The family of this 127-nucleotide RNA from Adiantum capillus-veneris is "U11 spliceosomal RNA". The match comes from Rfam's covariance-model search (73 bits). For this family Rfam cites "Additional low-abundance human small nuclear ribonucleoproteins: U11, U12, etc" (Montzka and Steitz, Proc Natl Acad Sci U S A, 1988). The family has 72 seed sequences and 2,595 matches in Rfam 15.1.

RNA sequence: UAAAAGGGUCGGUUGGCUAAGUAUGCCACGCGCGCCCUCGAUGGCGCACGCCGUAUGGAAAUCUAGACAUAUGGCCGACACAAUUUUUGGAAUCCAUAGAGGGUUGGCUCGCUCGGCCGACCCUACU
Numbered sequence: 001u002a003a004a005a006g007g008g009u010c011g012g013u014u015g016g017c018u019a020a021g022u023a024u025g026c027c028a029c030g031c032g033c034g035c036c037c038u039c040g041a042u043g044g045c046g047c048a049c050g051c052c053g054u055a056u057g058g059a060a061a062u063c064u065a066g067a068c069a070u071a072u073g074g075c076c077g078a079c080a081c082a083a084u085u086u087u088u089g090g091a092a093u094c095c096a097u098a099g100a101g102g103g104u105u106g107g108c109u110c111g112c113u114c115g116g117c118c119g120a121c122c123c124u125a126c127u
Stems, first nucleotide, its partner, number of pairs: 008079005014028004029050002032047005051074007097125003102122008
Annotation
Taxonomically the source falls in Adiantum (Eukaryota, Streptophytina, Euphyllophyta, Vittarioideae). By type it is a spliceosomal small nuclear RNA.